[Rfam]
RNA: Small nucleolar RNA SNORA20
Organism: Carlito syrichta
RNA sequence: UUGUCUGUUUUGCUGCUAUAGUCUCCCAGUGAUAUGAGCAGUUAUACGCAUGGGAUAAAAUAAUAUUAGGUCAUUGUAAAUUGAGAUGAAGUAACUAUUUAAAUCUCUUCUGUAUGGACUAGACAUUG
Numbered sequence: 001u002u003g004u005c006u007g008u009u010u011u012g013c014u015g016c017u018a019u020a021g022u023c024u025c026c027c028a029g030u031g032a033u034a035u036g037a038g039c040a041g042u043u044a045u046a047c048g049c050a051u052g053g054g055a056u057a058a059a060a061u062a063a064u065a066u067u068a069g070g071u072c073a074u075u076g077u078a079a080a081u082u083g084a085g086a087u088g089a090a091g092u093a094a095c096u097a098u099u100u101a102a103a104u105c106u107c108u109u110c111u112g113u114a115u116g117g118a119c120u121a122g123a124c125a126u127u128g
Stems, first nucleotide, its partner, number of pairs: 001053004012042006019034002022032002066122004071117003075114004083107005089100004